Rfam assigns this 76-nucleotide sequence from Geotrypetes seraphini to the family "mir-190 microRNA precursor family". Rfam links the family to the GO terms miRNA-mediated post-transcriptional gene silencing and RISC complex. Clan: mir-50 clan. Taxonomically the source falls in Geotrypetes (Eukaryota, Metazoa, Euteleostomi, Gymnophiona).
[Rfam]
RNA sequence: GGUUCUGUUUGAUAUGUUUGAUAUUAGGUUGUUUUAUUGAAAACCAACUAAAUAUCAAACGUAUUCCUAUAGCGCC
Numbered sequence: 001g002g003u004u005c006u007g008u009u010u011g012a013u014a015u016g017u018u019u020g021a022u023a024u025u026a027g028g029u030u031g032u033u034u035u036a037u038u039g040a041a042a043a044c045c046a047a048c049u050a051a052a053u054a055u056c057a058a059a060c061g062u063a064u065u066c067c068u069a070u071a072g073c074g075c076c
Base pairs, nucleotide, nucleotide: 005072006071007070008069011065012064013063014062015061016060017059018058019057020056021055022054023053024052025051027049028048029047030046031045